The family of this 91-nucleotide sequence from Neobacillus massiliamazoniensis is "Glycine riboswitch aptamer". Pairs were carried over by alignment from the consensus structure. This family represents the bacterial glycine riboswitch.
RNA sequence: AUGACAACAAGGGGAGAGACUACUUAGAGUAGCGCCGAAGGAGCAAGCAGUGCAAUGUGAAUCUCUCAGGCAAAAGAACACUUGUUUGACG
Numbered sequence: 001a002u003g004a005c006a007a008c009a010a011g012g013g014g015a016g017a018g019a020c021u022a023c024u025u026a027g028a029g030u031a032g033c034g035c036c037g038a039a040g041g042a043g044c045a046a047g048c049a050g051u052g053c054a055a056u057g058u059g060a061a062u063c064u065c066u067c068a069g070g071c072a073a074a075a076g077a078a079c080a081c082u083u084g085u086u087u088g089a090c091g
Base pairs, nucleotide, nucleotide: 006086007085008084009083010082011081013079020032021031022030023029034071035070036069037067038066041065042064043063047058048057